[Rfam]
RNA: Glycine riboswitch aptamer
RNA sequence: UAGGUGACCUCUGGAAAGCAGGCCUGUGGGCCUCGCCGAAGGUGAAAGUCCGGCAAAACCCGGGCGAAGCUCUCAGGCAUCGAUGACAGAGGGGGAGGA
Number, nucleotide and partner (000 for none) at each position: 001u000002a000003g000004g000005u000006g000007a000008c092009c091010u090011c089012u088013g087014g000015a000016a000017a000018g000019c000020a033021g032022g031023c030024c000025u000026g000027u000028g000029g000030g023031c022032c021033u020034c000035g078036c077037c076038g074039a073040a000041g000042g072043u000044g070045a000046a000047a000048g065049u064050c063051c062052g061053g000054c000055a000056a000057a000058a000059c000060c000061c052062g051063g050064g049065c048066g000067a000068a000069g000070c044071u000072c042073u039074c038075a000076g037077g036078c035079a000080u000081c000082g000083a000084u000085g000086a000087c013088a012089g011090a010091g009092g008093g000094g000095g000096a000097g000098g000099a000